LOOT RNA: a 119-nucleotide RNA.
The family's consensus secondary structure is taken from published work.
Rfam classes the family as a small RNA.
RNA sequence: AACCUAAACCAAGCAAUGUUUGGCAUGGUUUACAAAUCCACAAAGAGAAACAGCUCGUCAUGAGUACUUCUCUUUGUGGCCAAUGCUGGAAAACGGCGUUGGGUGACUCUCGGGCUGCC
Numbered sequence: 001a002a003c004c005u006a007a008a009c010c011a012a013g014c015a016a017u018g019u020u021u022g023g024c025a026u027g028g029u030u031u032a033c034a035a036a037u038c039c040a041c042a043a044a045g046a047g048a049a050a051c052a053g054c055u056c057g058u059c060a061u062g063a064g065u066a067c068u069u070c071u072c073u074u075u076g077u078g079g080c081c082a083a084u085g086c087u088g089g090a091a092a093a094c095g096g097c098g099u100u101g102g103g104u105g106a107c108u109c110u111c112g113g114g115c116u117g118c119c
Base pairs, nucleotide, nucleotide: 001030002029003028004027009023010022011021012020013019014018038079039078040077041076042075043074044073045072046071047070048069053065054064055063056062081101082100083099084098085097086096087095088094102119103118104117105116107114